[Rfam]
RNA sequence: UGGGCUAGUGAUGAUGACUGGUAACAGAUGAGUCUAUAUAAUGAAUAAUAUAUGUCCUGAUACUGAGAUCCAG
Number, nucleotide and partner (000 for none) at each position: 001u000002g071003g070004g069005c000006u067007a000008g000009u000010g000011a000012u000013g000014a000015u000016g000017a000018c000019u000020g000021g000022u000023a000024a000025c000026a000027g000028a000029u000030g000031a000032g000033u000034c000035u000036a000037u000038a000039u000040a000041a000042u000043g000044a000045a000046u000047a000048a000049u000050a000051u000052a000053u000054g000055u000056c000057c000058u000059g000060a000061u000062a000063c000064u000065g000066a000067g006068a000069u004070c003071c002072a000073g000
RNA: Small nucleolar RNA SNORD113/SNORD114 family
Organism: Cervus elaphus